[Rfam]
RNA sequence: GGCUGCGCUGCUCCCACACUGGGAUCAGCCGUAUCCCCAAUAAACCCUCUGCCGCAGGGUGGGGCAGCCCAGCC
Numbered sequence: 001g002g003c004u005g006c007g008c009u010g011c012u013c014c015c016a017c018a019c020u021g022g023g024a025u026c027a028g029c030c031g032u033a034u035c036c037c038c039a040a041u042a043a044a045c046c047c048u049c050u051g052c053c054g055c056a057g058g059g060u061g062g063g064g065c066a067g068c069c070c071a072g073c074c
Stems, first nucleotide, its partner, number of pairs: 001074005007068001009066005021037005044060005
Source information
A member of the RNA family "bZIP non canonical Hac1/Xbp1 intron", 74 nucleotides long. Rfam's curators write: bZIP intron RNA is a non-canonical intron that was first reported in HAC1 gene in yeast and XBP1 gene in Metazoa.